[Rfam]
RNA sequence: GCCAGCUAAUGAUGACCUGCACUCAAAACCAGAACCUGGGGAGUGCAGGCCUGAUGUCACCUGGC
Numbered sequence: 001g002c003c004a005g006c007u008a009a010u011g012a013u014g015a016c017c018u019g020c021a022c023u024c025a026a027a028a029c030c031a032g033a034a035c036c037u038g039g040g041g042a043g044u045g046c047a048g049g050c051c052u053g054a055u056g057u058c059a060c061c062u063g064g065c
Stems, first nucleotide, its partner, number of pairs: 001065005014051001016049008029039003
RNA: Selenocysteine insertion sequence 1
Organism: Poecilia reticulata